Notes: Rfam assigns this 57-nucleotide RNA sequence from Streptococcus sp. DORA_10 to the family "patAB leader". It is one of the family's seed sequences. Taxonomically the source falls in Streptococcus (Bacteria, Bacilli, Lactobacillales, Streptococcaceae). Pairs were carried over by alignment from the consensus structure, which was predicted with RNAfold. It is annotated as a cis-regulatory leader. For this family Rfam cites "Dominant role of nucleotide substitution in the diversification of serotype 3 pneumococci over decades and during a single infection" (Croucher et al., PLoS Genet, 2013). From the family's description: Mutation in hairpin loop weakens it and seems to increase the transcription of the downstream CDS.
RNA sequence: ACACAAACAGAAUGAAAAGGAGCUGACACAUUGUCGCUCCCUUUUGUCUAUUUUUUA
Dot-bracket structure: ........(((...((((((...((((.....))))...)))))).)))........
Numbered sequence: 001a002c003a004c005a006a007a008c009a010g011a012a013u014g015a016a017a018a019g020g021a022g023c024u025g026a027c028a029c030a031u032u033g034u035c036g037c038u039c040c041c042u043u044u045u046g047u048c049u050a051u052u053u054u055u056u057a
Stems, first nucleotide, its partner, number of pairs: 009049003015045006024036004